[Rfam]
This 123-nucleotide RNA from Sorex araneus belongs to the Rfam family "Small nucleolar RNA SNORA26". Gene Ontology terms of the family: RNA processing and nucleolus. Pairs were carried over by alignment from the consensus structure, which was predicted with RNAalifold. About the family: The snoRNA HBI-6 belong to the H/ACA family of snoRNAs, guiding the pseudouridylation of position U4522 if the 28S rRNA. HBI-6 is the human orthologue of mouse MBI-6 snoRNA. Lineage of the source: Eukaryota > Teleostomi > Theria > Boreoeutheria > Sorex. On this family, see Huttenhofer et al., EMBO J 2001: "RNomics: an experimental approach that identifies 201 candidates for novel, small, non-messenger RNAs in mouse".

RNA sequence: GUACCCUUCUAAAAUUGAUGCAGUUGCUUUACAUUGACAAUGCAGAAAGGUAAAGUAAGAAUCUAUAAAACCUAGAGAGGAGAUUGUAAAACUCCUCUUUGGAUUCCGCCUGGAGACAAACUG
Numbered sequence: 001g002u003a004c005c006c007u008u009c010u011a012a013a014a015u016u017g018a019u020g021c022a023g024u025u026g027c028u029u030u031a032c033a034u035u036g037a038c039a040a041u042g043c044a045g046a047a048a049g050g051u052a053a054a055g056u057a058a059g060a061a062u063c064u065a066u067a068a069a070a071c072c073u074a075g076a077g078a079g080g081a082g083a084u085u086g087u088a089a090a091a092c093u094c095c096u097c098u099u100u101g102g103a104u105u106c107c108g109c110c111u112g113g114a115g116a117c118a119a120a121c122u123g
Stems, first nucleotide, its partner, number of pairs: 002052004007047004014041004019036001059117001062114004072102007080094003084091002